[Rfam]
RNA sequence: ACAGUCUGGGGCAAGGCUCCUGAGUUGCUGCAUCUGCCCAGCUGCAGGUUCAGCUUUGUACCAGGAAGCCCAACGUUAACAUAAAUUCCCAGAAGUCUUUCCUGCAUCAGAAUCUGCAGUAACAGGUGUGAGCAUUCUAGCAGCAGAUUGAUGAUCAUGUAUUAUACCGUACACAGGA
Numbered sequence: 001a002c003a004g005u006c007u008g009g010g011g012c013a014a015g016g017c018u019c020c021u022g023a024g025u026u027g028c029u030g031c032a033u034c035u036g037c038c039c040a041g042c043u044g045c046a047g048g049u050u051c052a053g054c055u056u057u058g059u060a061c062c063a064g065g066a067a068g069c070c071c072a073a074c075g076u077u078a079a080c081a082u083a084a085a086u087u088c089c090c091a092g093a094a095g096u097c098u099u100u101c102c103u104g105c106a107u108c109a110g111a112a113u114c115u116g117c118a119g120u121a122a123c124a125g126g127u128g129u130g131a132g133c134a135u136u137c138u139a140g141c142a143g144c145a146g147a148u149u150g151a152u153g154a155u156c157a158u159g160u161a162u163u164a165u166a167c168c169g170u171a172c173a174c175a176g177g178a
Stems, first nucleotide, its partner, number of pairs: 004080002008076001010074001015070004019065004024061002027054004032049003090104001092101003113173001115171003119167003124162001129157003133153004139148001141146001
Shown here is a 178-nucleotide sequence from Otolemur garnettii, a member of the family "Small Cajal body specific RNA 16". The family's consensus secondary structure was predicted with RNAfold. scaRNAs are a specific class of small nuclear RNAs which localise to the Cajal bodies and guide the modification of RNA polymerase II transcribed spliceosomal RNAs U1, U2, U4, U5 and U12. ACA47 belongs to the H/ACA box class of guide RNAs as it has the predicted hairpin-hinge-hairpin-tail structure, the conserved H/ACA-box motifs and is found associated with GAR1. ACA47 is predicted to guide the pseudouridylation of residue U5 of the U1 spliceosomal snRNA. The source organism's lineage runs through Eukaryota, Bilateria, Gnathostomata, Primates and Otolemur. Its family is annotated with nucleolus and RNA processing in the Gene Ontology.